The record is a 68-nucleotide RNA sequence from Ureibacillus endophyticus, which matches "Bacillaceae-1 RNA" in Rfam.
NCBI's taxonomy places the organism under Bacteria, Bacillati, Bacilli, Caryophanales, Ureibacillus.
The match comes from Rfam's covariance-model search (41 bits).
By type it is a small RNA.
[Rfam]
RNA sequence: GAAAUAGGAACUUCGCCUAAGAGCGCAACAUCCAUGUUUCAACGGCGAAGCCAGUACAUCCAUGUACA
Dot-bracket structure: ..........(((((((.......(.(((......))).)...)))))))...((((......)))).